Exoribonuclease-resistant RNA (xrRNA) plant-infecting virus (class 3): a 47-nucleotide RNA from Anisodus acutangulus. A search with the family's covariance model found it, with a score of 32 bits. About the family: Exoribonuclease-resistant RNA (xrRNA) plant-infecting virus (class 3) is a ncRNA that was reported in Plant viruses. On this family, see Gezelle et al., bioRxiv [Preprint] 2024: "The pseudoknot structure of a viral RNA reveals a conserved mechanism for programmed exoribonuclease resistance". The organism belongs to Anisodus, within Eukaryota.
RNA sequence: AACCUAGCUGCCUAUAUGGUUGCAAAGAGUGGAAGGUUAGUCUCUAA
Numbered sequence: 001a002a003c004c005u006a007g008c009u010g011c012c013u014a015u016a017u018g019g020u021u022g023c024a025a026a027g028a029g030u031g032g033a034a035g036g037u038u039a040g041u042c043u044c045u046a047a
Stems, first nucleotide, its partner, number of pairs: 001037001003035001008032002012027002015046002018043002
Dot-bracket structure: (.(....((..((.[[.[[......))...))..).)....]].]].
The base pairs follow the family's consensus structure, which is taken from published work.